The record is a 67-nucleotide RNA from Molossus molossus, which matches "mir-302 microRNA precursor family" in Rfam. On this family, see Mineno et al., Nucleic Acids Res 2006: "The expression profile of microRNAs in mouse embryos".
RNA sequence: CUUCCACUCUAACAUGGAAACGCUUUCUGUGCCUCGAGUAGUAAGUGCUUCCAUGUUUUAGUAGAAG
Numbered sequence: 001c002u003u004c005c006a007c008u009c010u011a012a013c014a015u016g017g018a019a020a021c022g023c024u025u026u027c028u029g030u031g032c033c034u035c036g037a038g039u040a041g042u043a044a045g046u047g048c049u050u051c052c053a054u055g056u057u058u059u060a061g062u063a064g065a066a067g
Base pairs, nucleotide, nucleotide: 001067002066003065006062007061008060011057012056013055014054015053016052017051018050019049021047022046023045024044025043027041028040
The organism belongs to Molossus, within Eukaryota.